[Rfam]
The family of this 98-nucleotide sequence from Faecalibacterium sp. CAG:74 is "THF (Tetrahydrofolate) riboswitch aptamer".

Nucleotides: 098
Base pairs, nucleotide, nucleotide: 001098002097003096004095005094010085011084012083013082014081015080016079017078018077019076020074021073022072026055027054029053030052031051032050033049034048035047039091040090041089043087059071060070061069062068
Number, partner (000 for none) and nucleotide at each position: 001098g002097g003096c004095a005094g006000a007000g008000u009000a010085g011084c012083u013082g014081a015080a016079u017078c018077c019076g020074c021073g022072u023000u024000a025000a026055g027054u028000g029053u030052u031051c032050a033049u034048g035047a036000a037000c038000g039091g040090g041089g042000a043087g044000u045000u046000g047035u048034c049033a050032u051031g052030a053029a054027a055026c056000g057000a058000a059071g060070c061069c062068g063000c064000a065000c066000g067000g068062c069061g070060g071059c072022g073021c074020g075000g076019u077018g078017g079016g080015u081014u082013c083012g084011g085010c086000g087043c088000a089041u090040c091039c092000c093000g094005c095004u096003g097002u098001c
Rfam's curators write: Tetrahydrofolate (THF) riboswitch was first reported for Ames et al. as an RNA motif in 5' untranslated (5'-UTR)regions of folate transport and biosynthesis genes in Firmicutes genomes. The literature on the family includes a 2010 paper in Chem Biol by Ames et al., "A eubacterial riboswitch class that senses the coenzyme tetrahydrofolate". Taxonomically the source falls in Faecalibacterium (Bacteria, Bacillota, Clostridia, Oscillospiraceae). The match comes from Rfam's covariance-model search (85 bits).